[Rfam]
RNA sequence: CAGCGUUCUCGGGGCGGGGUGGAAGUCCCCACCGGCGGUGAUGGCCCCGCUCGACGAGCGGGGCCGCAGCCCGCGAGCGCCCGGCGCCGACCGGCGGCGGGGUCAGCAGAUUCGGUGCGAUUCCGAAGCCGACGGUCACAGUCCGGAUGGAAGAGAACGGGU
Numbered sequence: 001c002a003g004c005g006u007u008c009u010c011g012g013g014g015c016g017g018g019g020u021g022g023a024a025g026u027c028c029c030c031a032c033c034g035g036c037g038g039u040g041a042u043g044g045c046c047c048c049g050c051u052c053g054a055c056g057a058g059c060g061g062g063g064c065c066g067c068a069g070c071c072c073g074c075g076a077g078c079g080c081c082c083g084g085c086g087c088c089g090a091c092c093g094g095c096g097g098c099g100g101g102g103u104c105a106g107c108a109g110a111u112u113c114g115g116u117g118c119g120a121u122u123c124c125g126a127a128g129c130c131g132a133c134g135g136u137c138a139c140a141g142u143c144c145g146g147a148u149g150g151a152a153g154a155g156a157a158c159g160g161g162u
Stems, first nucleotide, its partner, number of pairs: 004159007017029003031142002033131002035074004069129002077107002111127005133145003
Dot-bracket structure: ...(((((((......(((.......))).[[((((((..............................[[))))..((...........................))...(((((.......)))))]])).(((.....]]))).......)))))))...
RNA: FMN riboswitch aptamer (RFN element)